[Rfam]
RNA sequence: AUACUUACCUGGACGGGGUUAAAUGGAUGAUCAACAAGGUUCAUGACCUAGGUUUGCAAUCUCCAUUGCACUCAGGAGGGGUGCUCGCCUAAGGUCCACCCAAGUGGUGGAGCCUACGUCAUAAUUUUUGGAAGUGGGGGACUUGCAUUCGCGUGGCCCCUCA
Numbered sequence: 001a002u003a004c005u006u007a008c009c010u011g012g013a014c015g016g017g018g019u020u021a022a023a024u025g026g027a028u029g030a031u032c033a034a035c036a037a038g039g040u041u042c043a044u045g046a047c048c049u050a051g052g053u054u055u056g057c058a059a060u061c062u063c064c065a066u067u068g069c070a071c072u073c074a075g076g077a078g079g080g081g082u083g084c085u086c087g088c089c090u091a092a093g094g095u096c097c098a099c100c101c102a103a104g105u106g107g108u109g110g111a112g113c114c115u116a117c118g119u120c121a122u123a124a125u126u127u128u129u130g131g132a133a134g135u136g137g138g139g140g141a142c143u144u145g146c147a148u149u150c151g152c153g154u155g156g157c158c159c160c161u162c163a
Stems, first nucleotide, its partner, number of pairs: 012120004016049006024043005050090003054087001056084003060080003063076002092115003095111003099107002136162005144155003
The family of this 163-nucleotide sequence from Rhododendron simsii is "U1 spliceosomal RNA". Clan: U1 clan. The family has 100 seed sequences and 40,184 matches in Rfam 15.1. The organism belongs to Rhododendron, within Eukaryota.